[Rfam]
RNA sequence: GUUUGGUUGAAUAAUCCGUUUUGUCUGAAAAGAAAGGCGAGGGAUAAUAAUAGAUUAAACGCUUUUCAGAAUAACCUUACUCAUAGUUAAUGGUUAAGUACGUUUUUUCACAGAUUUAUCUUAUAAAAAACGCCGGUAUAAAACCGGCAUUUUUAAAUAUA
Numbered sequence: 001g002u003u004u005g006g007u008u009g010a011a012u013a014a015u016c017c018g019u020u021u022u023g024u025c026u027g028a029a030a031a032g033a034a035a036g037g038c039g040a041g042g043g044a045u046a047a048u049a050a051u052a053g054a055u056u057a058a059a060c061g062c063u064u065u066u067c068a069g070a071a072u073a074a075c076c077u078u079a080c081u082c083a084u085a086g087u088u089a090a091u092g093g094u095u096a097a098g099u100a101c102g103u104u105u106u107u108u109c110a111c112a113g114a115u116u117u118a119u120c121u122u123a124u125a126a127a128a129a130a131c132g133c134c135g136g137u138a139u140a141a142a143a144c145c146g147g148c149a150u151u152u153u154u155a156a157a158u159a160u161a
Base pairs, nucleotide, nucleotide: 017102018101019100024070025069026068028066029065030064031063032062041056042055045052046051112121113120130150132148133147134146135145136144137143

Enterobacterial sRNA STnc430: a 161-nucleotide RNA sequence from Mangrovibacter sp. MFB070.
A search with the family's covariance model found it, with a score of 50 bits.
By type it is a small RNA.
Pairs were carried over by alignment from the consensus structure, which was predicted with CMfinder.